The record is a 166-nucleotide RNA sequence from Clostridium pasteurianum, which matches "M-box riboswitch aptamer (ykoK leader)" in Rfam.
The match comes from Rfam's covariance-model search (142 bits).
On this family, see Barrick et al., Proc Natl Acad Sci U S A 2004: "New RNA motifs suggest an expanded scope for riboswitches in bacterial genetic control".
Lineage of the source: Bacteria > Bacillota > Eubacteriales > Clostridium > Clostridium pasteurianum.
RNA sequence: AAAGGAACUUGUUAGGUGAGGUUCCUAUAUGAAUAUACGCUACUACCCAGAAAUGUGGAGACACGCCAAUGGGUUAGCUGGUACUACCGAAUUAAGGUUUUAUCUAAUGUAGCUGAGAAUUUCUCUAAGUCAUAUAGUGCCAAAACUCAACUAGGUGGGAGUUUUU
Numbered sequence: 001a002a003a004g005g006a007a008c009u010u011g012u013u014a015g016g017u018g019a020g021g022u023u024c025c026u027a028u029a030u031g032a033a034u035a036u037a038c039g040c041u042a043c044u045a046c047c048c049a050g051a052a053a054u055g056u057g058g059a060g061a062c063a064c065g066c067c068a069a070u071g072g073g074u075u076a077g078c079u080g081g082u083a084c085u086a087c088c089g090a091a092u093u094a095a096g097g098u099u100u101u102a103u104c105u106a107a108u109g110u111a112g113c114u115g116a117g118a119a120u121u122u123c124u125c126u127a128a129g130u131c132a133u134a135u136a137g138u139g140c141c142a143a144a145a146c147u148c149a150a151c152u153a154g155g156u157g158g159g160a161g162u163u164u165u166u
Stems, first nucleotide, its partner, number of pairs: 005162001008159003011151002013095001015147003020141003025137008039113005045074005054065004080104004086098003115125003
Dot-bracket structure: ....(..((((([.(((..(((..((((((((......(((((.(((((....((((....))))....))))).....((((..(((......])))..))))....))))).(((.....)))....)))))))).)))...)))..)).....)))..)....